Small nucleolar RNA Z152/R70/R12/: a 108-nucleotide sequence from Cicer arietinum.
Rfam 15.1 lists 604 matches to the family in 220 species.
The family's consensus secondary structure was predicted with PFOLD.
It scores 88 bits against the family's covariance model.
[Rfam]
RNA sequence: GGUGCAAUCAUAAGAUGAAAACACAUUUGUGUUUUUUGGGUAGUGGACAGAACCAUUUGGUUUUGCCGUGAGCGUGUUUUAUAACGACUUCUCCUUCCACUGAGCACU
Numbered sequence: 001g002g003u004g005c006a007a008u009c010a011u012a013a014g015a016u017g018a019a020a021a022c023a024c025a026u027u028u029g030u031g032u033u034u035u036u037u038g039g040g041u042a043g044u045g046g047a048c049a050g051a052a053c054c055a056u057u058u059g060g061u062u063u064u065g066c067c068g069u070g071a072g073c074g075u076g077u078u079u080u081a082u083a084a085c086g087a088c089u090u091c092u093c094c095u096u097c098c099a100c101u102g103a104g105c106a107c108u
Stems, first nucleotide, its partner, number of pairs: 001108005